[Rfam]
RNA sequence: GCGUCCCGCCCCGUGGACGCCCUGCCCAUCCGGGCCGACUCCCGGUUACGCUGGCGCCGUGCGCCUACCGGGCCAUUCUCCGGGACGCCGCAUAGCCGACAGCCGUCGCACCUCAAGGGAGCCCCUUCAUG
Numbered sequence: 001g002c003g004u005c006c007c008g009c010c011c012c013g014u015g016g017a018c019g020c021c022c023u024g025c026c027c028a029u030c031c032g033g034g035c036c037g038a039c040u041c042c043c044g045g046u047u048a049c050g051c052u053g054g055c056g057c058c059g060u061g062c063g064c065c066u067a068c069c070g071g072g073c074c075a076u077u078c079u080c081c082g083g084g085a086c087g088c089c090g091c092a093u094a095g096c097c098g099a100c101a102g103c104c105g106u107c108g109c110a111c112c113u114c115a116a117g118g119g120a121g122c123c124c125c126u127u128c129a130u131g
Stems, first nucleotide, its partner, number of pairs: 060092004066085001068083005095109002098107003